The family of this 57-nucleotide RNA from Aquilegia coerulea is "Plastid-ndhJ 3UTR RNA". The source organism's lineage runs through Eukaryota, Streptophyta, Embryophyta, Ranunculales and Aquilegia. From the family's description: Plastid ndhJ is a non-coding RNA (ncRNA) present in plastids. It was identified as a short stem-loop motif in the 3 prime untranslate region (3UTR) of ndhJ gene. The literature on the family includes a 2023 paper in Plant Commun by Richter et al., "Retrograde signaling in plants: A critical review focusing on the GUN pathway and beyond". Rfam classes the family as a cis-regulatory element.
RNA sequence: UCAUGAGCUUUGUACCGUGCACAUCAUUUAGGUGGGGCCUAGAAAGCAAUAUAAGAA
Numbered sequence: 001u002c003a004u005g006a007g008c009u010u011u012g013u014a015c016c017g018u019g020c021a022c023a024u025c026a027u028u029u030a031g032g033u034g035g036g037g038c039c040u041a042g043a044a045a046g047c048a049a050u051a052u053a054a055g056a057a
Stems, first nucleotide, its partner, number of pairs: 020036001022034004